[Rfam]
RNA: Lysine riboswitch aptamer
Nucleotides: 178
Base pairs, nucleotide, nucleotide: 006173007172008171009170010169011168016081017080018079019078020077021076022075023074024073032066033065034064035063036062037061038060039059085117086116087115088114089113090112091111092110094108095107096106118144119143120142121141122140123139124138125137126136127135128134146163147162148161149160150159
Number, partner (000 for none) and nucleotide at each position: 001000a002000g003000u004000g005000a006173g007172g008171a009170u010169a011168g012000a013000g014000g015000c016081g017080c018079a019078a020077a021076u022075a023074u024073u025000a026000a027000a028000a029000g030000u031000a032066u033065u034064c035063u036062u037061c038060a039059a040000g041000a042000a043000g044000g045000g046000a047000a048000c049000a050000g051000c052000c053000u054000a055000g056000c057000g058000a059039u060038u061037g062036a063035a064034g065033a066032a067000g068000a069000a070000a071000g072000g073024g074023g075022u076021a077020u078019u079018u080017g081016c082000c083000g084000a085117a086116g087115c088114g089113a090112g091111u092110a093000a094108u095107c096106g097000a098000a099000c100000u101000g102000u103000u104000a105000u106096c107095g108094a109000g110092u111091a112090c113089u114088u115087g116086c117085u118144g119143g120142a121141u122140u123139u124138c125137c126136g127135u128134u129000g130000a131000a132000u133000a134128a135127g136126c137125g138124g139123g140122a141121g142120u143119c144118u145000g146163u147162c148161a149160g150159g151000a152000u153000a154000u155000u156000u157000u158000a159150c160149c161148u162147g163146g164000a165000g166000a167000g168011c169010u170009a171008u172007c173006c174000c175000g176000u177000a178000g